[Rfam]
RNA sequence: CUCUGUUUCGAAUAGAUUCAGGGCAAAAGGAG
Numbered sequence: 001c002u003c004u005g006u007u008u009c010g011a012a013u014a015g016a017u018u019c020a021g022g023g024c025a026a027a028a029g030g031a032g
Stems, first nucleotide, its partner, number of pairs: 001023005008016002
The family of this 32-nucleotide sequence from Shouchella oshimensis is "L31-Firmicutes ribosomal protein leader". A reference for the family is Eckert and Weinberg (2020), "Discovery of 20 novel ribosomal leader candidates in bacteria and archaea", BMC Microbiol. By type it is a cis-regulatory leader. NCBI's taxonomy places the organism under Bacteria, Bacillota, Caryophanales, Shouchella, Shouchella oshimensis. Pairs were carried over by alignment from the consensus structure, which is taken from published work.